[Rfam]
RNA: Mammalian CPEB3 ribozyme
Organism: Parnassius apollo
RNA sequence: UUAUUGAAAGUGGGGGUCAUUGUAGAAGCGUGCUCGUCACGACCCCUGCCAGCCCUAUUCAGGGCUGCAAUUCUACA
Dot-bracket structure: ............[[[[[[..((((((((.(.......).)]]]]]]...(((((((....)))))))...)))))))